Annotation: The record is a 102-nucleotide RNA sequence from Lachnospiraceae bacterium KHCPX20, which matches "SAM riboswitch aptamer (S box leader)" in Rfam. Lineage of the source: Bacteria > Bacillati > Bacillota > Clostridia > Lachnospiraceae. The SAM riboswitch is found upstream of a number of genes which code for proteins involved in methionine or cysteine biosynthesis in Gram-positive bacteria.
[Rfam]
RNA sequence: CUCUUAUUCAGAGUGGCGGAGAUACAAAGGAUCUGUGAAACCACGGCAACCCCUGCGCAGGCAGGACGGUGCCAACCUGAGCGAGCAAUCGAACAAUAAGGG
Numbered sequence: 001c002u003c004u005u006a007u008u009c010a011g012a013g014u015g016g017c018g019g020a021g022a023u024a025c026a027a028a029g030g031a032u033c034u035g036u037g038a039a040a041c042c043a044c045g046g047c048a049a050c051c052c053c054u055g056c057g058c059a060g061g062c063a064g065g066a067c068g069g070u071g072c073c074a075a076c077c078u079g080a081g082c083g084a085g086c087a088a089u090c091g092a093a094c095a096a097u098a099a100g101g102g
Base pairs, nucleotide, nucleotide: 001102002101003100004099005098006097007096008095013044014043015042016041021033022032023031030078045073046072047071048070050069051068052065053064054063055062082091083090084089